[Rfam]
RNA sequence: GCGGAUGGCCAGGCGGUCGCGCUGCCCUUCGGGGCGGUGAGGAACGUCCGGACUUCACGGAGAAACGGCGCCGGAUAACGUCCGGCCGGGGUAACCCGAGGGAAAGCGCCACAGAGAACAGACCGCCCCGGGUUCGCCCGGGGUAAGGGUGAAACGGUGGGGUAAGAGCCCACCGCCCCCCUGGCAACAGGGGGGGCAUGGCAAGCCCCGCCGGAAGCAAGGCCGAAUAGGGACUGCACGCCGCCCGCGAGGGAGGCAGGGGGUCUCCGCCCCGCGGUCCGGGUUGGCUGCCCGAGCCGGAUGGUGACAUCCGGCCCAGAUGAAUGAUCGCCCGGGAGGCCUCGGCCUCCCCGACAAAAUCCGGCGUAUCGGCCAUCCGCGCAA
Numbered sequence: 001g002c003g004g005a006u007g008g009c010c011a012g013g014c015g016g017u018c019g020c021g022c023u024g025c026c027c028u029u030c031g032g033g034g035c036g037g038u039g040a041g042g043a044a045c046g047u048c049c050g051g052a053c054u055u056c057a058c059g060g061a062g063a064a065a066c067g068g069c070g071c072c073g074g075a076u077a078a079c080g081u082c083c084g085g086c087c088g089g090g091g092u093a094a095c096c097c098g099a100g101g102g103a104a105a106g107c108g109c110c111a112c113a114g115a116g117a118a119c120a121g122a123c124c125g126c127c128c129c130g131g132g133u134u135c136g137c138c139c140g141g142g143g144u145a146a147g148g149g150u151g152a153a154a155c156g157g158u159g160g161g162g163u164a165a166g167a168g169c170c171c172a173c174c175g176c177c178c179c180c181c182u183g184g185c186a187a188c189a190g191g192g193g194g195g196g197c198a199u200g201g202c203a204a205g206c207c208c209c210g211c212c213g214g215a216a217g218c219a220a221g222g223c224c225g226a227a228u229a230g231g232g233a234c235u236g237c238a239c240g241c242c243g244c245c246c247g248c249g250a251g252g253g254a255g256g257c258a259g260g261g262g263g264u265c266u267c268c269g270c271c272c273c274g275c276g277g278u279c280c281g282g283g284u285u286g287g288c289u290g291c292c293c294g295a296g297c298c299g300g301a302u303g304g305u306g307a308c309a310u311c312c313g314g315c316c317c318a319g320a321u322g323a324a325u326g327a328u329c330g331c332c333c334g335g336g337a338g339g340c341c342u343c344g345g346c347c348u349c350c351c352c353g354a355c356a357a358a359a360u361c362c363g364g365c366g367u368a369u370c371g372g373c374c375a376u377c378c379g380c381g382c383a384a
Base pairs, nucleotide, nucleotide: 001380002379003378004377005376006375007374008373009372010371011369012332013331014330015329016328017327018326020039021038022037023036024035025034026033027032044367045366046365048364049363050362051361052360053217054216055215056214062267063266066213067212068211069210070209071085072084073083074082075081086100087098088097089096090095101208102207106206107205108202109201110200123148124147125144126143127142128141129140130139131138132137156174157173158172159171160170161169175197176195177194178193179192180191181190182189183188221289222288223287224286231280232279233278234277235276236275259273260272261271262270296315297314298313299312300311301310302309303308
Dot-bracket structure: ((((((((((((((((((.((((((((....))))))))....[[[.[[[[[((((.....[[..((((((((((.....)))))(((((....)))).)((...(((((............((((((((((....))))))))..)).......((((((.......))))))(((((((((....)))))))).)..)))..)))))))))))))...((((......((((((......................((((...]]..)))).)))))).....))))......((((((((....))))))))..........)))))))...........................]]]]]]]].).))))))))))....
Annotation:
Shown here is a 384-nucleotide RNA from Paroceanicella profunda, a member of the family "Bacterial RNase P class A". The base pairs follow the family's consensus structure, which is taken from published work. From the family's description: Ribonuclease P (RNase P) is a ubiquitous endoribonuclease, found in archaea, bacteria and eukarya as well as chloroplasts and mitochondria.